[Rfam]
RNA: int-alpA RNA
RNA sequence: GGCGCGGCUAGGGUAGUUCCCAAAAAGCUGGUCCGCACCAGCCUGCCGCGUCGUCACUCUGCGGA
Numbered sequence: 001g002g003c004g005c006g007g008c009u010a011g012g013g014u015a016g017u018u019c020c021c022a023a024a025a026a027g028c029u030g031g032u033c034c035g036c037a038c039c040a041g042c043c044u045g046c047c048g049c050g051u052c053g054u055c056a057c058u059c060u061g062c063g064g065a
Base pairs, nucleotide, nucleotide: 001052002051003050004049005048006047007046008045011021012020013019027042028041029040030039031038036064
Dot-bracket structure: ((((((((..(((.....))).....(((((....[.)))))..))))))))...........].